[Rfam]
RNA sequence: ACAGUGCCAUGGCCGUCUGAGCUAAGGUUUCUGAUAAAGACACAAAGGCGCAGACAUCUGCGCCUUUUUU
Numbered sequence: 001a002c003a004g005u006g007c008c009a010u011g012g013c014c015g016u017c018u019g020a021g022c023u024a025a026g027g028u029u030u031c032u033g034a035u036a037a038a039g040a041c042a043c044a045a046a047g048g049c050g051c052a053g054a055c056a057u058c059u060g061c062g063c064c065u066u067u068u069u070u
Stems, first nucleotide, its partner, number of pairs: 002019003006013002044067010
RNA: Salmonella enterica sRNA STnc40